[Rfam]
RNA sequence: UGAACAAAUACGCUUAAUUCUUUAGAUUAAAGAAGCGGGGGAACCAAGUUUCCUGGGGUGAGUACACUUAUCUUGUGUUAGGGUUACCUUUCAACCCGAAUCCGUCAGCUAACUUCGUCAGCGUAGAAAGAAAAGGA
Numbered sequence: 001u002g003a004a005c006a007a008a009u010a011c012g013c014u015u016a017a018u019u020c021u022u023u024a025g026a027u028u029a030a031a032g033a034a035g036c037g038g039g040g041g042a043a044c045c046a047a048g049u050u051u052c053c054u055g056g057g058g059u060g061a062g063u064a065c066a067c068u069u070a071u072c073u074u075g076u077g078u079u080a081g082g083g084u085u086a087c088c089u090u091u092c093a094a095c096c097c098g099a100a101u102c103c104g105u106c107a108g109c110u111a112a113c114u115u116c117g118u119c120a121g122c123g124u125a126g127a128a129a130g131a132a133a134a135g136g137a
Stems, first nucleotide, its partner, number of pairs: 011123004018034007035118006045055002056103003064078004081097004

Rfam assigns this 137-nucleotide RNA sequence from Paenibacillus silvestris to the family "c-di-AMP riboswitch aptamer (ydaO/yuaA leader)".
Lineage of the source: Bacteria > Bacilli > Caryophanales > Paenibacillaceae > Paenibacillus.